[Rfam]
RNA: Trypanosomatid snoRNA TB9Cs3H1
Organism: Leptomonas pyrrhocoris
RNA sequence: AGUACGAUUAAACACGGACGCGCCUCGGCGUAUUCACUCGGUGCCGGCGCUGUCCGCCAGUGUCGUACGAG
Number, nucleotide and partner (000 for none) at each position: 001a000002g068003u067004a066005c065006g064007a063008u062009u000010a000011a000012a000013c000014a000015c000016g055017g054018a053019c052020g000021c000022g048023c047024c000025u000026c000027g045028g044029c043030g000031u000032a000033u000034u000035c000036a000037c000038u000039c000040g000041g000042u000043g029044c028045c027046g000047g023048c022049g000050c000051u000052g019053u018054c017055c016056g000057c000058c000059a000060g000061u000062g008063u007064c006065g005066u004067a003068c002069g000070a000071g000